[Rfam]
RNA sequence: GCGAGACAGUGGCCCGCCGGUCGAGUGCGACAGAUAAACUGUUCACGGUCGACGCCAGGCGCAGCCCAGCGCCGACCGUAAAUGAUCAGCCAGCAGCCGCUGCAACCACAGGGAG
Number, nucleotide and partner (000 for none) at each position: 001g000002c000003g000004a000005g000006a000007c000008a000009g000010u000011g000012g000013c000014c000015c000016g000017c000018c000019g000020g000021u000022c000023g000024a000025g000026u000027g000028c000029g000030a000031c000032a000033g000034a000035u000036a000037a000038a000039c000040u000041g000042u000043u000044c000045a000046c000047g077048g076049u075050c074051g073052a000053c000054g000055c069056c000057a000058g000059g067060c000061g000062c000063a000064g000065c000066c000067c059068a000069g055070c000071g000072c000073c051074g050075a049076c048077c047078g000079u000080a000081a000082a000083u000084g000085a000086u000087c000088a000089g000090c000091c102092a101093g100094c099095a000096g000097c000098c000099g094100c093101u092102g091103c000104a000105a000106c000107c000108a000109c000110a000111g000112g000113g000114a000115g000
RNA: Streptomyces-metK RNA
Organism: Streptomyces hygroscopicus